[Rfam]
RNA sequence: UAAAAGGGUCGGUUGGUCGCUAAAUAUGCCACGCUCACCCAUUGAAUGGUGAGUGCCAUAUGGCUAUCAAGACAUAUGGCUGACAUAAUUUGUGGGAACAUAUAGGGAUGGCUCCCUUUGCCUGACCCUCCUUUCU
Numbered sequence: 001u002a003a004a005a006g007g008g009u010c011g012g013u014u015g016g017u018c019g020c021u022a023a024a025u026a027u028g029c030c031a032c033g034c035u036c037a038c039c040c041a042u043u044g045a046a047u048g049g050u051g052a053g054u055g056c057c058a059u060a061u062g063g064c065u066a067u068c069a070a071g072a073c074a075u076a077u078g079g080c081u082g083a084c085a086u087a088a089u090u091u092g093u094g095g096g097a098a099c100a101u102a103u104a105g106g107g108a109u110g111g112c113u114c115c116c117u118u119u120g121c122c123u124g125a126c127c128c129u130c131c132u133u134u135c136u
Stems, first nucleotide, its partner, number of pairs: 008084005014031004032055008056079007102134001104132002107130002110127002113125002116120001
The record is a 136-nucleotide sequence from Helianthus annuus, which matches "U11 spliceosomal RNA" in Rfam. Rfam 15.1 lists 2,595 matches to the family in 1,202 species. The source organism's lineage runs through Eukaryota, Viridiplantae, Tracheophyta, Magnoliopsida and Helianthus.